[Rfam]
RNA: c-di-AMP riboswitch aptamer (ydaO/yuaA leader)
RNA sequence: GGUACUCGAUCACCGAAACAUGGGCAGGAGCGGGGGAACCAGGUCAGUCUGCGGUCCCCCCUGCUCCGGUGCGGGGGGUCGCUCGGGGUGAAGCCGCUCCCACAGCGGCCGGGCGAUUCCUCUCGCCCGAACCCGACAGCUCACCUCGUAGGCGUCGCAGAGGACCUGC
Numbered sequence: 001g002g003u004a005c006u007c008g009a010u011c012a013c014c015g016a017a018a019c020a021u022g023g024g025c026a027g028g029a030g031c032g033g034g035g036g037a038a039c040c041a042g043g044u045c046a047g048u049c050u051g052c053g054g055u056c057c058c059c060c061c062u063g064c065u066c067c068g069g070u071g072c073g074g075g076g077g078g079u080c081g082c083u084c085g086g087g088g089u090g091a092a093g094c095c096g097c098u099c100c101c102a103c104a105g106c107g108g109c110c111g112g113g114c115g116a117u118u119c120c121u122c123u124c125g126c127c128c129g130a131a132c133c134c135g136a137c138a139g140c141u142c143a144c145c146u147c148g149u150a151g152g153c154g155u156c157g158c159a160g161a162g163g164a165c166c167u168g169c
Stems, first nucleotide, its partner, number of pairs: 011154001013152002019028001030149006040085001086134003094108004111128004